[Rfam]
RNA sequence: AGAUGAGGGGUGUCUUCGGCAUCAGUCGCCCCCGCCGCCGACGCCCUUCGGGGGAGCAGCGCAAGGCCCGCUCCCCCAGCCUACCUUCCGGUGGAAUUACGCCCCCUCCGUCGGAAGGCCUAGGGCGGUGAGGUCCCCCCAGCUUCACCGCCCGCCUUU
Numbered sequence: 001a002g003a004u005g006a007g008g009g010g011u012g013u014c015u016u017c018g019g020c021a022u023c024a025g026u027c028g029c030c031c032c033c034g035c036c037g038c039c040g041a042c043g044c045c046c047u048u049c050g051g052g053g054g055a056g057c058a059g060c061g062c063a064a065g066g067c068c069c070g071c072u073c074c075c076c077c078a079g080c081c082u083a084c085c086u087u088c089c090g091g092u093g094g095a096a097u098u099a100c101g102c103c104c105c106c107u108c109c110g111u112c113g114g115a116a117g118g119c120c121u122a123g124g125g126c127g128g129u130g131a132g133g134u135c136c137c138c139c140c141a142g143c144u145u146c147a148c149c150g151c152c153c154g155c156c157u158u159u
Stems, first nucleotide, its partner, number of pairs: 008046007017037004051076007059068001061067002084118002088114004093109003123153012
Shown here is a 159-nucleotide sequence from Bradyrhizobium japonicum, a member of the family "Bradyrhizobiaceae sRNA BjrC80". Rfam's curators put it in the seed alignment.